[Rfam]
Gammaprotebacteria rimP leader: a 101-nucleotide RNA sequence from Klebsiella variicola. NCBI's taxonomy places the organism under Bacteria, Pseudomonadati, Enterobacteriaceae, Klebsiella pneumoniae complex, Klebsiella variicola. On this family, see Naville and Gautheret, Genome Biol 2010: "Premature terminator analysis sheds light on a hidden world of bacterial transcriptional attenuation". It is one of the family's seed sequences. By type it is a cis-regulatory leader.
RNA sequence: GAUCGCCAUGGCGAUCUCAGGGUUCAGUUAUCUAAAGCCCCGAUUUAUCGGGGUUUUUUGUUAUCUGACUUCAGAAUAACUGGGCUAUACGCCCUUUUUUU
Numbered sequence: 001g002a003u004c005g006c007c008a009u010g011g012c013g014a015u016c017u018c019a020g021g022g023u024u025c026a027g028u029u030a031u032c033u034a035a036a037g038c039c040c041c042g043a044u045u046u047a048u049c050g051g052g053g054u055u056u057u058u059u060g061u062u063a064u065c066u067g068a069c070u071u072c073a074g075a076a077u078a079a080c081u082g083g084g085c086u087a088u089a090c091g092c093c094c095u096u097u098u099u100u101u
Stems, first nucleotide, its partner, number of pairs: 034057009082094004